[Rfam]
RNA sequence: UUGGUUGAGAAUUAUAGGGUAAUGAGUUAGGAAAACAAAGCGAGCAGUGGGAGCCGCUCACUGCGCCAACAUUAAUGUGCGCGAGAAUUUCUGGAGGGGUAAUAGGCUGGCCAAGCGUUGACGCUGCUUACUUUGCAGAACUCGCUUGUGCGGGUCUCCC
Numbered sequence: 001u002u003g004g005u006u007g008a009g010a011a012u013u014a015u016a017g018g019g020u021a022a023u024g025a026g027u028u029a030g031g032a033a034a035a036c037a038a039a040g041c042g043a044g045c046a047g048u049g050g051g052a053g054c055c056g057c058u059c060a061c062u063g064c065g066c067c068a069a070c071a072u073u074a075a076u077g078u079g080c081g082c083g084a085g086a087a088u089u090u091c092u093g094g095a096g097g098g099g100u101a102a103u104a105g106g107c108u109g110g111c112c113a114a115g116c117g118u119u120g121a122c123g124c125u126g127c128u129u130a131c132u133u134u135g136c137a138g139a140a141c142u143c144g145c146u147u148g149u150g151c152g153g154g155u156c157u158c159c160c
Stems, first nucleotide, its partner, number of pairs: 005030004040061001042059004047054001062083005098160002104157005110151001112148002115145003124138004